[Rfam]
RNA sequence: UCUUCAUUCCUCGUACUCUCUCACCGGUCAGAGUGACGAGACAGCACGCGAAAUAAAGAGA
Numbered sequence: 001u002c003u004u005c006a007u008u009c010c011u012c013g014u015a016c017u018c019u020c021u022c023a024c025c026g027g028u029c030a031g032a033g034u035g036a037c038g039a040g041a042c043a044g045c046a047c048g049c050g051a052a053a054u055a056a057a058g059a060g061a
Stems, first nucleotide, its partner, number of pairs: 001059004006054002010050001012048003016044002019041004
Notes:
A member of the RNA family "mir-8364 microRNA precursor family" from Pristionchus pacificus, 61 nucleotides long. Pairs were carried over by alignment from the consensus structure, which was predicted with RNAalifold. The family has 13 seed sequences and 3,320 matches in Rfam 15.1.